A member of the RNA family "mir-17 microRNA precursor family" from Ornithorhynchus anatinus, 77 nucleotides long. The organism belongs to Ornithorhynchus, within Eukaryota. A reference for the family is Liu et al. (2025), "Structural Features Within Precursor microRNA-20a Regulate Dicer-TRBP Processing", J Mol Biol. Its family is annotated with RISC complex and miRNA-mediated post-transcriptional gene silencing in the Gene Ontology.
[Rfam]
RNA sequence: CUUGGUUGUGCAAAAGUGCUUACAGUGCAGGUAGCUUUUAGUACCUACUGCAAUGUAAGCACUUCUAGCAUUACCAU
Numbered sequence: 001c002u003u004g005g006u007u008g009u010g011c012a013a014a015a016g017u018g019c020u021u022a023c024a025g026u027g028c029a030g031g032u033a034g035c036u037u038u039u040a041g042u043a044c045c046u047a048c049u050g051c052a053a054u055g056u057a058a059g060c061a062c063u064u065c066u067a068g069c070a071u072u073a074c075c076a077u
Stems, first nucleotide, its partner, number of pairs: 005074002008071001010069002014064011026052003030049005
Dot-bracket structure: ....((.(.((..(((((((((((.(((.(((((..........)))))))).)))))))))))...)).).))...